Molybdenum/Tungsten riboswitch aptamer (Moco RNA motif): a 158-nucleotide sequence from Thermanaeromonas sp. C210. It scores 79 bits against the family's covariance model. NCBI's taxonomy places the organism under Bacteria, Bacillota, Neomoorellales, Neomoorellaceae, Thermanaeromonas. Its family is annotated with molybdenum ion binding, tungstate binding and regulation of gene expression in the Gene Ontology.
RNA sequence: UUUGAUAUCUUUCUCCGAGCCGGUUGAGCCUAAGGACGAGCCCUUAAGCAAGGGUCAGAUCUAUGGCCAGCCGGCCUGGGCUAAAAUAUAGCCCACGGGGUAUGCCGGGAAACGGGCAUGCCUCCCCUUGCUCGGAAAGGAGAAAGGUUUGGACCACG
Numbered sequence: 001u002u003u004g005a006u007a008u009c010u011u012u013c014u015c016c017g018a019g020c021c022g023g024u025u026g027a028g029c030c031u032a033a034g035g036a037c038g039a040g041c042c043c044u045u046a047a048g049c050a051a052g053g054g055u056c057a058g059a060u061c062u063a064u065g066g067c068c069a070g071c072c073g074g075c076c077u078g079g080g081c082u083a084a085a086a087u088a089u090a091g092c093c094c095a096c097g098g099g100g101u102a103u104g105c106c107g108g109g110a111a112a113c114g115g116g117c118a119u120g121c122c123u124c125c126c127c128u129u130g131c132u133c134g135g136a137a138a139g140g141a142g143a144a145a146g147g148u149u150u151g152g153a154c155c156a157c158g
Base pairs, nucleotide, nucleotide: 003152011144012143013142014141015140016139019075020074021073022072023071024070025069026068028067029066030065034062035061036060077095078094079093080092081091082090083089098123099122100121101120102119103118104117105116106115108113124135125134